[Rfam]
RNA sequence: AUAUUGGCGGACGCGGCAUCAUCAAGAUUCACAAACUUCAAGGCUUGAGUGAGAGGGGUGGCAUACGGUCACCUCCUUUAGUCGAAAGGGUCCUUUUUUAUGGGAAUCUUGAUGAUGCUGCAUCGGCAAAUAU
Dot-bracket structure: .........((.((((((((((((((((((.((...................................................................)).)))))))))))))))))).)).........
Numbered sequence: 001a002u003a004u005u006g007g008c009g010g011a012c013g014c015g016g017c018a019u020c021a022u023c024a025a026g027a028u029u030c031a032c033a034a035a036c037u038u039c040a041a042g043g044c045u046u047g048a049g050u051g052a053g054a055g056g057g058g059u060g061g062c063a064u065a066c067g068g069u070c071a072c073c074u075c076c077u078u079u080a081g082u083c084g085a086a087a088g089g090g091u092c093c094u095u096u097u098u099u100a101u102g103g104g105a106a107u108c109u110u111g112a113u114g115a116u117g118c119u120g121c122a123u124c125g126g127c128a129a130a131u132a133u
Stems, first nucleotide, its partner, number of pairs: 010124002013121018032102002